[Rfam]
RNA: Nuclear RNase P
Organism: Glaucidium brasilianum
RNA sequence: UCCGGGGGAAGCUCACUGCCGAGGCCACGCACGGGGUGCGCGUCACCCGCAGCACGCCUCGGGGAAGGUCUGAGGGAAGGGCCGCCCGCGGCUCCAGCAGAGCCCCGCCCGCGGCCGGGCGGGUGAGCCACCAGCAAGGGGGUGGCGCCGCGCGCCUGCGGGCCGGGAUGGGCAGGAGAAGCCGCGCAGGUUGCGGCGGGGCCUCACUCACCCCCCGCAGCCCCGGCGGAUGCUCGUGGCCCCGCGGUGCUUUGAGACAGACUCACGGCCGGCAAUGGUUGAGUCCAAUGGGUGAGGUGGGGCAUUGCUCUACAACCCAAUUCAGACUACUCUCCCCUGGA
Numbered sequence: 001u002c003c004g005g006g007g008g009a010a011g012c013u014c015a016c017u018g019c020c021g022a023g024g025c026c027a028c029g030c031a032c033g034g035g036g037u038g039c040g041c042g043u044c045a046c047c048c049g050c051a052g053c054a055c056g057c058c059u060c061g062g063g064g065a066a067g068g069u070c071u072g073a074g075g076g077a078a079g080g081g082c083c084g085c086c087c088g089c090g091g092c093u094c095c096a097g098c099a100g101a102g103c104c105c106c107g108c109c110c111g112c113g114g115c116c117g118g119g120c121g122g123g124u125g126a127g128c129c130a131c132c133a134g135c136a137a138g139g140g141g142g143u144g145g146c147g148c149c150g151c152g153c154g155c156c157u158g159c160g161g162g163c164c165g166g167g168a169u170g171g172g173c174a175g176g177a178g179a180a181g182c183c184g185c186g187c188a189g190g191u192u193g194c195g196g197c198g199g200g201g202c203c204u205c206a207c208u209c210a211c212c213c214c215c216c217g218c219a220g221c222c223c224c225g226g227c228g229g230a231u232g233c234u235c236g237u238g239g240c241c242c243c244g245c246g247g248u249g250c251u252u253u254g255a256g257a258c259a260g261a262c263u264c265a266c267g268g269c270c271g272g273c274a275a276u277g278g279u280u281g282a283g284u285c286c287a288a289u290g291g292g293u294g295a296g297g298u299g300g301g302g303c304a305u306u307g308c309u310c311u312a313c314a315a316c317c318c319a320a321u322u323c324a325g326a327c328u329a330c331u332c333u334c335c336c337c338u339g340g341a
Stems, first nucleotide, its partner, number of pairs: 001341004007335003012296006020061005034048005070325005080270004090104005105122006123266005129260001141251003297313007
Dot-bracket structure: ((((..(((..((((((..(((((.........(((((.....)))))........)))))........[[[[[.....((((......(((((.....)))))((((((......))))))(((((.(...........(((.........................................................................................................)))........).)))))))))....................))))))(((((((...))))))).......]]]]].......)))..))))